[Rfam]
RNA: Eukaryotic small subunit ribosomal RNA, nucleotides 1661 to 1828
Organism: Lepisma saccharinum
RNA sequence: CCGCCCGUCGAUGCAUCCGAUCGAGUGAUACGGUGAGGCCUUUGGACCGGCGCCUGCGGGGGUUCCACCUUCCGCAGGAACCGUCGGGAAGACGGCCGAACCUGGUCACUUAGAGGAAGCAAAAGUCGUAACAAGGUUUGGGUAGGUGAACCUGCAGAAGGAUCAUUA
Numbered sequence: 001c002c003g004c005c006c007g008u009c010g011a012u013g014c015a016u017c018c019g020a021u022c023g024a025g026u027g028a029u030a031c032g033g034u035g036a037g038g039c040c041u042u043u044g045g046a047c048c049g050g051c052g053c054c055u056g057c058g059g060g061g062g063u064u065c066c067a068c069c070u071u072c073c074g075c076a077g078g079a080a081c082c083g084u085c086g087g088g089a090a091g092a093c094g095g096c097c098g099a100a101c102c103u104g105g106u107c108a109c110u111u112a113g114a115g116g117a118a119g120c121a122a123a124a125g126u127c128g129u130a131a132c133a134a135g136g137u138u139u140g141g142g143u144a145g146g147u148g149a150a151c152c153u154g155c156a157g158a159a160g161g162a163u164c165a166u167u168a
Base pairs, nucleotide, nucleotide: 001135003132006128007127009125012121013120014119016117017116018115021112023111024110025109026108027107028106029105032102033101034100037097038096039095040094042092043091047087048086049085050084051083052082054077055076056075057074058073059071060070061069062068137160138159139158142155143154144153145152146151